[Rfam]
RNA: Nitrogen stress-induced RNA 1
RNA sequence: UGGUAGAUGCACCUUGAUCUUCGACUCCUCUGGUUGGUGAGAGCCUGCCAGAGGAUUUUUUU
Numbered sequence: 001u002g003g004u005a006g007a008u009g010c011a012c013c014u015u016g017a018u019c020u021u022c023g024a025c026u027c028c029u030c031u032g033g034u035u036g037g038u039g040a041g042a043g044c045c046u047g048c049c050a051g052a053g054g055a056u057u058u059u060u061u062u
Stems, first nucleotide, its partner, number of pairs: 002013003027054008036045002